Background:
The record is a 338-nucleotide RNA from Dethiosulfovibrio peptidovorans, which matches "Bacterial RNase P class A" in Rfam. It is annotated as a ribozyme. Pairs were carried over by alignment from the consensus structure, which is taken from published work. The source organism's lineage runs through Bacteria, Thermotogati, Synergistota, Synergistales and Dethiosulfovibrio peptidovorans.

RNA sequence: AGAGUCUUCCAGGUAGUCGCUGCCGAUAAAUAUCGGGAGAGGAAAGUCCGGGCUCCAAAGGGCAGGACGCUGGGUAACGCCCAGUUGGCGUAAGCCACAGGCCAGUGCCACAGAGAUAUACCGCCUCUUCAAGAGGUAAGGGUGAAAAGGUGGGGUAAGAGCCCACCGGACGGCAGGUGACUGUCGUGCCAGGUAAACCCCGUCCGGAGCAAGACCGAAUAGGGGGGGAUGAGGCGGCCCGCCGACCUCCGGGUACGGUCGCUCGAGAUGUCUCGCGAGGGAUGUCCUAGAUAAAUGACUACCCACGACAAAACCCGGCUUACAGGAAGGCUCUCCAG
Numbered sequence: 001a002g003a004g005u006c007u008u009c010c011a012g013g014u015a016g017u018c019g020c021u022g023c024c025g026a027u028a029a030a031u032a033u034c035g036g037g038a039g040a041g042g043a044a045a046g047u048c049c050g051g052g053c054u055c056c057a058a059a060g061g062g063c064a065g066g067a068c069g070c071u072g073g074g075u076a077a078c079g080c081c082c083a084g085u086u087g088g089c090g091u092a093a094g095c096c097a098c099a100g101g102c103c104a105g106u107g108c109c110a111c112a113g114a115g116a117u118a119u120a121c122c123g124c125c126u127c128u129u130c131a132a133g134a135g136g137u138a139a140g141g142g143u144g145a146a147a148a149g150g151u152g153g154g155g156u157a158a159g160a161g162c163c164c165a166c167c168g169g170a171c172g173g174c175a176g177g178u179g180a181c182u183g184u185c186g187u188g189c190c191a192g193g194u195a196a197a198c199c200c201c202g203u204c205c206g207g208a209g210c211a212a213g214a215c216c217g218a219a220u221a222g223g224g225g226g227g228g229a230u231g232a233g234g235c236g237g238c239c240c241g242c243c244g245a246c247c248u249c250c251g252g253g254u255a256c257g258g259u260c261g262c263u264c265g266a267g268a269u270g271u272c273u274c275g276c277g278a279g280g281g282a283u284g285u286c287c288u289a290g291a292u293a294a295a296u297g298a299c300u301a302c303c304c305a306c307g308a309c310a311a312a313a314c315c316c317g318g319c320u321u322a323c324a325g326g327a328a329g330g331c332u333c334u335c336c337a338g
Stems, first nucleotide, its partner, number of pairs: 001334010012303007020039002023036005044321003048318005053209004060240004065205005070084005085099001086097004100200002105198002107194003121141002123137006149167006168189001170187007213260004223250005233243003267286008